The record is a 110-nucleotide sequence from Momordica charantia, which matches "MIR162_1 microRNA precursor family" in Rfam. The family's consensus secondary structure was predicted with RNAalifold. The organism belongs to Momordica, within Eukaryota. On this family, see Reinhart et al., Genes Dev 2002: "MicroRNAs in plants". Clan: MIR167 microRNA precursor clan.
RNA sequence: GGUGAAGUCACUGGAGGCAGCGGUUCAUCGAUCCUUUCCUGAGAUUUUUGUUCAAAACAAACCACAAUACACGAAUUGAUCGAUAAACCUCUGCAUCCAGCGCUUUCUCU
Numbered sequence: 001g002g003u004g005a006a007g008u009c010a011c012u013g014g015a016g017g018c019a020g021c022g023g024u025u026c027a028u029c030g031a032u033c034c035u036u037u038c039c040u041g042a043g044a045u046u047u048u049u050g051u052u053c054a055a056a057a058c059a060a061a062c063c064a065c066a067a068u069a070c071a072c073g074a075a076u077u078g079a080u081c082g083a084u085a086a087a088c089c090u091c092u093g094c095a096u097c098c099a100g101c102g103c104u105u106u107c108u109c110u
Base pairs, nucleotide, nucleotide: 013098014097015096018093019092020091022089023088024087025086027084028083029082030081031080032079033078036075037074038073